This 209-nucleotide RNA from Nocardioides marmoriginsengisoli belongs to the Rfam family "Actinobacteria sRNA Ms_IGR-5".
RNA sequence: ACACGGAAAGGAGGUGGUCCCAGAAAUGCAUUCUUCUAGGACGAGUGAGGUGGCUGCUAGCUAGCAGCACCCGAGCCCCUUCCGCUCCUUGAGCCGACCGGGGCGAUCGCUGGCGGCUGCCGGCGAAUCCACAGCAGCCACCCGACCCGCAGGCGCGCCGGUAGUCCACCGGCCCGGGCCCUUCGGCCCACGCCUGCGGGUCGCUGCGU
Numbered sequence: 001a002c003a004c005g006g007a008a009a010g011g012a013g014g015u016g017g018u019c020c021c022a023g024a025a026a027u028g029c030a031u032u033c034u035u036c037u038a039g040g041a042c043g044a045g046u047g048a049g050g051u052g053g054c055u056g057c058u059a060g061c062u063a064g065c066a067g068c069a070c071c072c073g074a075g076c077c078c079c080u081u082c083c084g085c086u087c088c089u090u091g092a093g094c095c096g097a098c099c100g101g102g103g104c105g106a107u108c109g110c111u112g113g114c115g116g117c118u119g120c121c122g123g124c125g126a127a128u129c130c131a132c133a134g135c136a137g138c139c140a141c142c143c144g145a146c147c148c149g150c151a152g153g154c155g156c157g158c159c160g161g162u163a164g165u166c167c168a169c170c171g172g173c174c175c176g177g178g179c180c181c182u183u184c185g186g187c188c189c190a191c192g193c194c195u196g197c198g199g200g201u202c203g204c205u206g207c208g209u
Stems, first nucleotide, its partner, number of pairs: 013058006060124003064120002067117002072113001143203013157173006
A search with the family's covariance model found it, with a score of 95 bits.
It is annotated as a small RNA.
The source organism's lineage runs through Bacteria, Actinomycetota, Actinomycetes, Propionibacteriales and Nocardioides.
On this family, see Li et al., RNA 2013: "Identification of small RNAs in Mycobacterium smegmatis using heterologous Hfq".